[Rfam]
RNA sequence: CACCCAGCGGGGCAGGCGCUAGACGUCGGCUAGAUUUGGAACAGGGGCUGGCCAAGCGCUCGCGGGGGAAGCCAGGGGUCGAAUGUCGGGGGACAUUCGACCCCUUUUUU
Numbered sequence: 001c002a003c004c005c006a007g008c009g010g011g012g013c014a015g016g017c018g019c020u021a022g023a024c025g026u027c028g029g030c031u032a033g034a035u036u037u038g039g040a041a042c043a044g045g046g047g048c049u050g051g052c053c054a055a056g057c058g059c060u061c062g063c064g065g066g067g068g069a070a071g072c073c074a075g076g077g078g079u080c081g082a083a084u085g086u087c088g089g090g091g092g093a094c095a096u097u098c099g100a101c102c103c104c105u106u107u108u109u110u
Stems, first nucleotide, its partner, number of pairs: 003067003007063005012057002015027004028053006036045002074105014

Annotation
Rfam assigns this 110-nucleotide RNA from Agrilutibacter solisilvae to the family "Xanthomonadaceae sRNA asX1". The family's RNA type in Rfam is small RNA. The base pairs follow the family's consensus structure, which was predicted with CMfinder.